[Rfam]
RNA: drz-agam-2-2 ribozyme
RNA sequence: UGUAAGUGUUACUCUGUUAAUGGGGUAGGAUCCGAGACUGCUUUCGGGGUUACACAGGCUCUCCUACCCAACUCCUGUUCCGUCACGUCCUCGUCGUACAGAGUGGUAACUUUCCCCACCGCACAUCCAAGCUUGGGUACACGGGCCUGUCCCAACCCCUGGGGCGGAUGAUGGAGCAAGGCUAAACAGGUCGGG
Numbered sequence: 001u002g003u004a005a006g007u008g009u010u011a012c013u014c015u016g017u018u019a020a021u022g023g024g025g026u027a028g029g030a031u032c033c034g035a036g037a038c039u040g041c042u043u044u045c046g047g048g049g050u051u052a053c054a055c056a057g058g059c060u061c062u063c064c065u066a067c068c069c070a071a072c073u074c075c076u077g078u079u080c081c082g083u084c085a086c087g088u089c090c091u092c093g094u095c096g097u098a099c100a101g102a103g104u105g106g107u108a109a110c111u112u113u114c115c116c117c118a119c120c121g122c123a124c125a126u127c128c129a130a131g132c133u134u135g136g137g138u139a140c141a142c143g144g145g146c147c148u149g150u151c152c153c154a155a156c157c158c159c160u161g162g163g164g165c166g167g168a169u170g171a172u173g174g175a176g177c178a179a180g181g182c183u184a185a186a187c188a189g190g191u192c193g194g195g
Base pairs, nucleotide, nucleotide: 011104012103013102014101015100016099017098023069024068025067026066027065028064029063030062032058033057073195074194075193079190081189085097086096087095089106090105110180111179112178114176117173118172120170125169126168127167128166133155134154135153136152137151157164158163